Shown here is a 156-nucleotide RNA sequence, a member of the family "lysM-TM7 RNA". Rfam classes the family as a cis-regulatory element. Rfam's curators put it in the seed alignment.
[Rfam]
RNA sequence: GCCUACCAAAAAUGUCGCACGGGUACAGCCUUUUUAAUGCCUAGCGAGCAAAUAAUAGUAAUUAAUAUUGGUCGACACGUACUCUGUUCUGUGGUGAGAGCCGCAGAAGAAAGACAAACUAUGGUAGUAGCAUAGCUAGUAAUAGCCGUGCAGGAG
Numbered sequence: 001g002c003c004u005a006c007c008a009a010a011a012a013u014g015u016c017g018c019a020c021g022g023g024u025a026c027a028g029c030c031u032u033u034u035u036a037a038u039g040c041c042u043a044g045c046g047a048g049c050a051a052a053u054a055a056u057a058g059u060a061a062u063u064a065a066u067a068u069u070g071g072u073c074g075a076c077a078c079g080u081a082c083u084c085u086g087u088u089c090u091g092u093g094g095u096g097a098g099a100g101c102c103g104c105a106g107a108a109g110a111a112a113g114a115c116a117a118a119c120u121a122u123g124g125u126a127g128u129a130g131c132a133u134a135g136c137u138a139g140u141a142a143u144a145g146c147c148g149u150g151c152a153g154g155a156g
Stems, first nucleotide, its partner, number of pairs: 003127006013116004021084006087108009130151003135146004